[Rfam]
RNA sequence: CUAAACCUUCGGGGCAGGGUGCAAUUCCCUACCGGCGGUGAUUCCUGUUAGCUCUAGCGAGUUUCAGGAUUAGUCCGUGACCCGUGUGGCGGUGCAGUACUAGUGCUCACCGCUGCCGGUGGACUCGGUGCAAUUCCGAGACCGACAGUAUAGUCUGGAUGAGAGAAGGGGAAG
Numbered sequence: 001c002u003a004a005a006c007c008u009u010c011g012g013g014g015c016a017g018g019g020u021g022c023a024a025u026u027c028c029c030u031a032c033c034g035g036c037g038g039u040g041a042u043u044c045c046u047g048u049u050a051g052c053u054c055u056a057g058c059g060a061g062u063u064u065c066a067g068g069a070u071u072a073g074u075c076c077g078u079g080a081c082c083c084g085u086g087u088g089g090c091g092g093u094g095c096a097g098u099a100c101u102a103g104u105g106c107u108c109a110c111c112g113c114u115g116c117c118g119g120u121g122g123a124c125u126c127g128g129u130g131c132a133a134u135u136c137c138g139a140g141a142c143c144g145a146c147a148g149u150a151u152a153g154u155c156u157g158g159a160u161g162a163g164a165g166a167a168g169g170g171g172a173a174g
Stems, first nucleotide, its partner, number of pairs: 006169005017029003031154002033144002035078004073142002082119002124140005146157003